Plastid-rps18 3UTR RNA: a 57-nucleotide RNA sequence from Capsicum baccatum. By type it is a cis-regulatory element. Plastid rps18 is a non-coding RNA (ncRNA) present in plastids. The source organism's lineage runs through Eukaryota, Viridiplantae, Euphyllophyta, lamiids and Capsicum. The literature on the family includes a 2023 paper in Plant Commun by Richter et al., "Retrograde signaling in plants: A critical review focusing on the GUN pathway and beyond". The family's consensus secondary structure was predicted with LocARNA.

RNA sequence: UGCAAGUAUUUUAUGGUUAAGAAGCAACUGUCUAUUGUACAGAUUGUGAAGUAGUUU
Numbered sequence: 001u002g003c004a005a006g007u008a009u010u011u012u013a014u015g016g017u018u019a020a021g022a023a024g025c026a027a028c029u030g031u032c033u034a035u036u037g038u039a040c041a042g043a044u045u046g047u048g049a050a051g052u053a054g055u056u057u
Base pairs, nucleotide, nucleotide: 018037019036020035022033024031025030